[Rfam]
Nucleotides: 131
Base pairs, nucleotide, nucleotide: 009022010021011020012019078131079130080129081128082127083126084125085124086123087122088121089120090119096113097112098111099110100109
Number, partner (000 for none) and nucleotide at each position: 001000u002000u003000g004000a005000a006000g007000u008000u009022c010021c011020a012019u013000c014000c015000a016000c017000a018000a019012a020011u021010g022009g023000c024000u025000a026000a027000g028000a029000c030000u031000u032000a033000g034000g035000u036000c037000u038000u039000a040000g041000u042000g043000u044000a045000c046000g047000c048000c049000a050000g051000u052000u053000u054000u055000a056000g057000u058000g059000u060000a061000u062000a063000u064000g065000a066000g067000u068000u069000g070000u071000u072000c073000a074000a075000g076000u077000u078131g079130c080129a081128g082127g083126a084125c085124u086123a087122a088121u089120a090119c091000c092000a093000a094000a095000a096113u097112u098111c099110u100109u101000a102000u103000u104000u105000u106000g107000u108000c109100a110099a111098g112097a113096a114000g115000g116000c117000g118000g119090g120089u121088a122087u123086u124085a125084g126083u127082c128081c129080u130079g131078c